[Rfam]
RNA: S4-Flavobacteria ribosomal protein leader
RNA sequence: AAGUUAAAGGAUGACCUUAAUUUAGCUU
Numbered sequence: 001a002a003g004u005u006a007a008a009g010g011a012u013g014a015c016c017u018u019a020a021u022u023u024a025g026c027u028u
Stems, first nucleotide, its partner, number of pairs: 001028006007018004